Rfam assigns this 365-nucleotide part of an RNA from Mycobacterium lacus to the family "Bacterial large subunit ribosomal RNA".
[Rfam]
RNA sequence: CGAGAUAACUAUGGUUAAGGAACUCGGCAAAAUGCCCCCGUAACUUCGGGAGAAGGGGGACCGGAAUAUCGUGAACACCCUUGCGGUGCGAGCGGGAUCCGGUCGCAGAAACCAGUGAGAAGCGACUGUUUACUAAAAACACAGGUCCGUGCGAAGUCGCAAGACGAUGUAUACGGACUGACGCCUGCCCGGUGCUGGAAGGUUAAGAGGACCCGUUAACUCGUAAGGGUGAAGCGGAGAAUUUAAGCCCCAGUAAACGGCGGUGGUAACUAUAACCAUCCUAAGGUAGCGAAAUUCCUUGUCGGGUAAGUUCCGACCUGCACGAAUGGCGUAACGACUUCUCAACUGUCUCAACCAUAGACUCG
Numbered sequence: 001c002g003a004g005a006u007a008a009c010u011a012u013g014g015u016u017a018a019g020g021a022a023c024u025c026g027g028c029a030a031a032a033u034g035c036c037c038c039c040g041u042a043a044c045u046u047c048g049g050g051a052g053a054a055g056g057g058g059g060a061c062c063g064g065a066a067u068a069u070c071g072u073g074a075a076c077a078c079c080c081u082u083g084c085g086g087u088g089c090g091a092g093c094g095g096g097a098u099c100c101g102g103u104c105g106c107a108g109a110a111a112c113c114a115g116u117g118a119g120a121a122g123c124g125a126c127u128g129u130u131u132a133c134u135a136a137a138a139a140c141a142c143a144g145g146u147c148c149g150u151g152c153g154a155a156g157u158c159g160c161a162a163g164a165c166g167a168u169g170u171a172u173a174c175g176g177a178c179u180g181a182c183g184c185c186u187g188c189c190c191g192g193u194g195c196u197g198g199a200a201g202g203u204u205a206a207g208a209g210g211a212c213c214c215g216u217u218a219a220c221u222c223g224u225a226a227g228g229g230u231g232a233a234g235c236g237g238a239g240a241a242u243u244u245a246a247g248c249c250c251c252a253g254u255a256a257a258c259g260g261c262g263g264u265g266g267u268a269a270c271u272a273u274a275a276c277c278a279u280c281c282u283a284a285g286g287u288a289g290c291g292a293a294a295u296u297c298c299u300u301g302u303c304g305g306g307u308a309a310g311u312u313c314c315g316a317c318c319u320g321c322a323c324g325a326a327u328g329g330c331g332u333a334a335c336g337a338c339u340u341c342u343c344a345a346c347u348g349u350c351u352c353a354a355c356c357a358u359a360g361a362c363u364c365g
Stems, first nucleotide, its partner, number of pairs: 001365004009360008018351003035059005044049001060103006084095001086093002104108001116344007123336002127141003144179008152169001156165003182331004187261003192258002194254005201249003207243002213237004219230004262280006281285001291318001301317006
The match comes from Rfam's covariance-model search (2757 bits).